[Rfam]
RNA: Hfq-regulated sRNA 1
Organism: Enterobacillus tribolii
RNA sequence: AAAAAAAACCCCGCCAUCAUGGCGGGGGAAGACAGGGAUGGUGUCUAUGGCAAGGAAAAACAGGGUAUUACUUGGUC
Numbered sequence: 001a002a003a004a005a006a007a008a009c010c011c012c013g014c015c016a017u018c019a020u021g022g023c024g025g026g027g028g029a030a031g032a033c034a035g036g037g038a039u040g041g042u043g044u045c046u047a048u049g050g051c052a053a054g055g056a057a058a059a060a061c062a063g064g065g066u067a068u069u070a071c072u073u074g075g076u077c
Base pairs, nucleotide, nucleotide: 009028010027011026012025013023014022015021031077032076033075036072039070040069041068044064045063048060